The record is a 65-nucleotide RNA from Ceratitis capitata, which matches "mir-2 microRNA precursor family" in Rfam.
Pairs were carried over by alignment from the consensus structure, which was predicted with PFOLD.
RNA sequence: AGCCUCAUCAAGUGGUUGUGAUAUGGAUUCUCAACGCAUAUCACAGCCAGCUUUGAUGAGCUAGG
Numbered sequence: 001a002g003c004c005u006c007a008u009c010a011a012g013u014g015g016u017u018g019u020g021a022u023a024u025g026g027a028u029u030c031u032c033a034a035c036g037c038a039u040a041u042c043a044c045a046g047c048c049a050g051c052u053u054u055g056a057u058g059a060g061c062u063a064g065g
Base pairs, nucleotide, nucleotide: 005059006058007057008056009055010054011052012051013049014048015047016046017045018044019043020042021041024040025039

Its family is annotated with RISC complex and miRNA-mediated post-transcriptional gene silencing in the Gene Ontology. NCBI's taxonomy places the organism under Eukaryota, Insecta, Pterygota, Tephritidae, Ceratitis. It scores 59 bits against the family's covariance model.